RNA: Streptomyces-metH RNA
RNA sequence: GCUGUCCACGGCGUGAAACGGGGAACACGUGUACCGGACCGGCAGCUACGCUGGCCGGGUGCGCCCUCUCAAGGAGGGUGCAAAGCCGACAGCCGUCGCAACCACGGGAGCAUCUCCAUG
Numbered sequence: 001g002c003u004g005u006c007c008a009c010g011g012c013g014u015g016a017a018a019c020g021g022g023g024a025a026c027a028c029g030u031g032u033a034c035c036g037g038a039c040c041g042g043c044a045g046c047u048a049c050g051c052u053g054g055c056c057g058g059g060u061g062c063g064c065c066c067u068c069u070c071a072a073g074g075a076g077g078g079u080g081c082a083a084a085g086c087c088g089a090c091a092g093c094c095g096u097c098g099c100a101a102c103c104a105c106g107g108g109a110g111c112a113u114c115u116c117c118a119u120g
Stems, first nucleotide, its partner, number of pairs: 060082004065077004085099002088097003